[Rfam]
RNA sequence: CUAUAACUAAAUUAUUUAGUUAUGGCGGAAGGAG
Dot-bracket structure: (((((((((((...))))))))))).........
Notes
The family of this 34-nucleotide RNA sequence is "L31-Firmicutes ribosomal protein leader". It is annotated as a cis-regulatory leader. Rfam's curators put it in the seed alignment.